[Rfam]
RNA sequence: GAGGUCUGAGGGGAAGCUGCUUUUAGUACGAGAGGAACAGAGCAGCGGCGCCACUGGUGUACCGGUUGCCCGACAGGGCAUCGCCGGGCAGCUACGCGCUAAUGGAUAAGAGCUGAAAGCAUCUAAGCUCGAAGCCAUCCCUAAAAAAAGGCCUCUUUAAGGACACCGUUAGAAGAACGGUUUGAUAGAGUUGGGGUGUAAGAAUCAAGGUGAAAACCGAGAUUUUCAGCCCGCAGCUACUAACGUCCGCACU
Numbered sequence: 001g002a003g004g005u006c007u008g009a010g011g012g013g014a015a016g017c018u019g020c021u022u023u024u025a026g027u028a029c030g031a032g033a034g035g036a037a038c039a040g041a042g043c044a045g046c047g048g049c050g051c052c053a054c055u056g057g058u059g060u061a062c063c064g065g066u067u068g069c070c071c072g073a074c075a076g077g078g079c080a081u082c083g084c085c086g087g088g089c090a091g092c093u094a095c096g097c098g099c100u101a102a103u104g105g106a107u108a109a110g111a112g113c114u115g116a117a118a119g120c121a122u123c124u125a126a127g128c129u130c131g132a133a134g135c136c137a138u139c140c141c142u143a144a145a146a147a148a149a150g151g152c153c154u155c156u157u158u159a160a161g162g163a164c165a166c167c168g169u170u171a172g173a174a175g176a177a178c179g180g181u182u183u184g185a186u187a188g189a190g191u192u193g194g195g196g197u198g199u200a201a202g203a204a205u206c207a208a209g210g211u212g213a214a215a216a217c218c219g220a221g222a223u224u225u226u227c228a229g230c231c232c233g234c235a236g237c238u239a240c241u242a243a244c245g246u247c248c249g250c251a252c253u
Stems, first nucleotide, its partner, number of pairs: 001155007010142004016046008047100005055094003062087005067080005103137003110130005161248004165181005186242003189238005194232003202225005209218001
Rfam assigns this 253-nucleotide part of an RNA from an uncultured archaeon to the family "Archaeal large subunit ribosomal RNA". Its family is annotated with ribosome and structural constituent of ribosome in the Gene Ontology. The base pairs follow the family's consensus structure, which is taken from published work. Rfam 15.1 lists 2,955 matches to the family in 1,139 species.